[Rfam]
RNA sequence: UCGGCACUGUUUUUCCGAGUCUAUGUUUCUAAGGACUAAACUAUGAAGUAUAGACCAAUGGGUAUAAAGAGAAAUCUUUAUGCCUCCCGUGUUUGGAAAGGAAAAAGGUAAUGGUUUAA
Numbered sequence: 001u002c003g004g005c006a007c008u009g010u011u012u013u014u015c016c017g018a019g020u021c022u023a024u025g026u027u028u029c030u031a032a033g034g035a036c037u038a039a040a041c042u043a044u045g046a047a048g049u050a051u052a053g054a055c056c057a058a059u060g061g062g063u064a065u066a067a068a069g070a071g072a073a074a075u076c077u078u079u080a081u082g083c084c085u086c087c088c089g090u091g092u093u094u095g096g097a098a099a100g101g102a103a104a105a106a107g108g109u110a111a112u113g114g115u116u117u118a119a
Stems, first nucleotide, its partner, number of pairs: 004112001011105006019055011033042002060085011086096002

The record is a 119-nucleotide RNA sequence from Paramaledivibacter caminithermalis, which matches "Molybdenum/Tungsten riboswitch aptamer (Moco RNA motif)" in Rfam. The base pairs follow the family's consensus structure, which is taken from published work. It scores 80 bits against the family's covariance model.